[Rfam]
RNA sequence: GAGUUCUUUGUAAUGGCGAGGUUAAGGAGUUUUCUCUCUGAAACCGUAGUGAAAGCAAUUGCCCGCAGGUAACAAGGGGCAAGGCGUGCUCGCCUGUAGUCAUUACAUAGAGACCCGAAACCAGUCGAUCUAUGCAUGGCUAGGCUGAAGCCCUAUGAAAGUGGGGUGGAGGGCCGAACCGGUGCUGAUGUGCAAAUCGCUCGGAUGAGCUGUGUAUAGGGGCAAAAGACCAAUCUAGACUGGCGAUAGCUGGUU
Numbered sequence: 001g002a003g004u005u006c007u008u009u010g011u012a013a014u015g016g017c018g019a020g021g022u023u024a025a026g027g028a029g030u031u032u033u034c035u036c037u038c039u040g041a042a043a044c045c046g047u048a049g050u051g052a053a054a055g056c057a058a059u060u061g062c063c064c065g066c067a068g069g070u071a072a073c074a075a076g077g078g079g080c081a082a083g084g085c086g087u088g089c090u091c092g093c094c095u096g097u098a099g100u101c102a103u104u105a106c107a108u109a110g111a112g113a114c115c116c117g118a119a120a121c122c123a124g125u126c127g128a129u130c131u132a133u134g135c136a137u138g139g140c141u142a143g144g145c146u147g148a149a150g151c152c153c154u155a156u157g158a159a160a161g162u163g164g165g166g167u168g169g170a171g172g173g174c175c176g177a178a179c180c181g182g183u184g185c186u187g188a189u190g191u192g193c194a195a196a197u198c199g200c201u202c203g204g205a206u207g208a209g210c211u212g213u214g215u216a217u218a219g220g221g222g223c224a225a226a227a228g229a230c231c232a233a234u235c236u237a238g239a240c241u242g243g244c245g246a247u248a249g250c251u252g253g254u255u
Stems, first nucleotide, its partner, number of pairs: 005111003009107009020045004026039004049056002061080004068073001083094004114253002117250001121243006130219011141207001143175004150167007179204004184200002187198002221231002
The record is a 255-nucleotide part of an RNA from Thermoplasmatales archaeon SCGC AB-539-N05, which matches "Archaeal large subunit ribosomal RNA" in Rfam. The match comes from Rfam's covariance-model search (2798 bits). Lineage of the source: Archaea > Methanobacteriati > Thermoplasmatota > Thermoplasmata > Thermoplasmatales. The family's consensus secondary structure is taken from published work.